A member of the RNA family "Small nucleolar RNA SNORD111" from Chelydra serpentina, 77 nucleotides long. The family's consensus secondary structure was predicted with RNAalifold. Its family is annotated with nucleolus and RNA processing in the Gene Ontology.
RNA sequence: CGGCCUGAAGUGAUGAGUUUUUCAUGUCUCUUCUCUGAGAUUUAUUCUGGAGAUAACAUUUCACUCUGAUUGGGCUC
Numbered sequence: 001c002g003g004c005c006u007g008a009a010g011u012g013a014u015g016a017g018u019u020u021u022u023c024a025u026g027u028c029u030c031u032u033c034u035c036u037g038a039g040a041u042u043u044a045u046u047c048u049g050g051a052g053a054u055a056a057c058a059u060u061u062c063a064c065u066c067u068g069a070u071u072g073g074g075c076u077c
Stems, first nucleotide, its partner, number of pairs: 002076004
NCBI's taxonomy places the organism under Eukaryota, Opisthokonta, Euteleostomi, Tetrapoda, Chelydra.